[Rfam]
RNA sequence: GGAUUGAGAGAGAAAUAACGUAAGAUGGGAUUUAUUUCUAUGCUCCUACUGGAGCCAUGCUUUAACUCCUAUCUUAUUAAAAGGAGCAUCAGUGAAUUCUGGCAUUUGCAUUAUAAUUAACGGGUUAUUUUUGCUUCGGCAACGAUAUCGCAUCUCCUUCCGCUAAUUUGGUUGGAGAAAUAAUUAUUAUUGCUUGCUAUAUUUACUGAGGUAUUCAAUUGGCAGGGCUUGCCCCGCUAAUUUAUGUUGCUUCUAAACAGUACUUUCUUAACCCACUCGUCUUGAAACACGG
Numbered sequence: 001g002g003a004u005u006g007a008g009a010g011a012g013a014a015a016u017a018a019c020g021u022a023a024g025a026u027g028g029g030a031u032u033u034a035u036u037u038c039u040a041u042g043c044u045c046c047u048a049c050u051g052g053a054g055c056c057a058u059g060c061u062u063u064a065a066c067u068c069c070u071a072u073c074u075u076a077u078u079a080a081a082a083g084g085a086g087c088a089u090c091a092g093u094g095a096a097u098u099c100u101g102g103c104a105u106u107u108g109c110a111u112u113a114u115a116a117u118u119a120a121c122g123g124g125u126u127a128u129u130u131u132u133g134c135u136u137c138g139g140c141a142a143c144g145a146u147a148u149c150g151c152a153u154c155u156c157c158u159u160c161c162g163c164u165a166a167u168u169u170g171g172u173u174g175g176a177g178a179a180a181u182a183a184u185u186a187u188u189a190u191u192g193c194u195u196g197c198u199a200u201a202u203u204u205a206c207u208g209a210g211g212u213a214u215u216c217a218a219u220u221g222g223c224a225g226g227g228c229u230u231g232c233c234c235c236g237c238u239a240a241u242u243u244a245u246g247u248u249g250c251u252u253c254u255a256a257a258c259a260g261u262a263c264u265u266u267c268u269u270a271a272c273c274c275a276c277u278c279g280u281c282u283u284g285a286a287a288c289a290c291g292g
Stems, first nucleotide, its partner, number of pairs: 001274002004271009017078001020077009082254007277292004
Dot-bracket structure: ((.(((((((((....(..(((((((((........................................))))))))))...(((((((...............................................................................................................................................................)))))))........))))))))).))..((((........))))
RNA: Eukaryotic large subunit ribosomal RNA, nucleotides 434 to 725